[Rfam]
RNA: Plasmid transferred anti-sense RNA
RNA sequence: UAGCCAUGGUUCACCUCUGAUGUAGGUGGGUUGUGGUCAGGAAGGGCCGGGUGUUACUAGCACCUGGCCUUUCCGCUU
Numbered sequence: 001u002a003g004c005c006a007u008g009g010u011u012c013a014c015c016u017c018u019g020a021u022g023u024a025g026g027u028g029g030g031u032u033g034u035g036g037u038c039a040g041g042a043a044g045g046g047c048c049g050g051g052u053g054u055u056a057c058u059a060g061c062a063c064c065u066g067g068c069c070u071u072u073c074c075g076c077u078u
Base pairs, nucleotide, nucleotide: 004036005035006034009031012028013027014026015025016024040074041073042072043071044070045069046068047067048066049065050064051063052062053061054060055059